[Rfam]
RNA sequence: AAUAAGUGCAGUUUUGCACUAUUCACGUUUAACGUUUGACCGUUCGUCUUAUUUGAAUUUUUUUAUAAUUAGUAUUUUUAUUGCUAUUAGAUGAUAAACAUGAAUAGUACUUUAUAUGUGACUAAAUAUUUUCAAUUUUUUCAUAAAUUUUUUAAAUAAGACGGACGGUUAAACAUUGGGCACGGAUAUCCACGACUGUACUUAUU
Numbered sequence: 001a002a003u004a005a006g007u008g009c010a011g012u013u014u015u016g017c018a019c020u021a022u023u024c025a026c027g028u029u030u031a032a033c034g035u036u037u038g039a040c041c042g043u044u045c046g047u048c049u050u051a052u053u054u055g056a057a058u059u060u061u062u063u064u065a066u067a068a069u070u071a072g073u074a075u076u077u078u079u080a081u082u083g084c085u086a087u088u089a090g091a092u093g094a095u096a097a098a099c100a101u102g103a104a105u106a107g108u109a110c111u112u113u114a115u116a117u118g119u120g121a122c123u124a125a126a127u128a129u130u131u132u133c134a135a136u137u138u139u140u141u142c143a144u145a146a147a148u149u150u151u152u153u154a155a156a157u158a159a160g161a162c163g164g165a166c167g168g169u170u171a172a173a174c175a176u177u178g179g180g181c182a183c184g185g186a187u188a189u190c191c192a193c194g195a196c197u198g199u200a201c202u203u204a205u206u
Stems, first nucleotide, its partner, number of pairs: 028180005035173018
Shown here is a 206-nucleotide RNA from Oryza sativa, a member of the family "MIR812 microRNA precursor family". NCBI's taxonomy places the organism under Eukaryota, Embryophyta, Magnoliopsida, Oryza, Oryza sativa. The family's consensus secondary structure was predicted with RNAalifold.